[Rfam]
Nucleotides: 130
Stems, first nucleotide, its partner, number of pairs: 002059001005056002007053003013047001015046006023038002026035001070122004075117002082111003086107001089104003093100001
Number, partner (000 for none) and nucleotide at each position: 001000g002059u003000c004000a005056a006055g007053a008052c009051u010000a011000g012000a013047a014000u015046c016045a017044c018043g019042c020041u021000u022000g023038g024037g025000a026035a027000c028000c029000a030000c031000c032000u033000g034000u035026u036000g037024c038023c039000u040000u041020a042019g043018u044017g045016u046015g047013u048000g049000c050000g051009a052008g053007u054000c055006c056005u057000c058000a059002a060000a061000g062000a063000a064000u065000a066000a067000c068000u069000g070122c071121u072120g073119a074000g075117c076116u077000u078000a079000u080000u081000c082111a083110c084109u085000g086107g087000c088000c089104g090103u091102g092000a093100c094000c095000u096000u097000g098000u099000u100093g101000g102091c103090a104089u105000a106000g107086u108000a109084a110083g111082u112000c113000a114000c115000c116076a117075g118000g119073u120072u121071a122070g123000u124000g125000g126000c127000a128000u129000g130000u
The record is a 130-nucleotide RNA sequence from Erinaceus europaeus, which matches "Small nucleolar RNA SNORA3/SNORA45 family" in Rfam. The members of this family belong to the H/ACA class of snoRNAs which are thought to guide the sites of modification of uridines to pseudouridines. This family includes mouse snoMBI-28 and human homologues ACA3 (SNORA3) and ACA3-2 (SNORA45). Both ACA3 and ACA3-2 share the same host gene. On this family, see Huttenhofer et al., EMBO J 2001: "RNomics: an experimental approach that identifies 201 candidates for novel, small, non-messenger RNAs in mouse". It scores 73 bits against the family's covariance model. Rfam links the family to the GO terms RNA processing and nucleolus.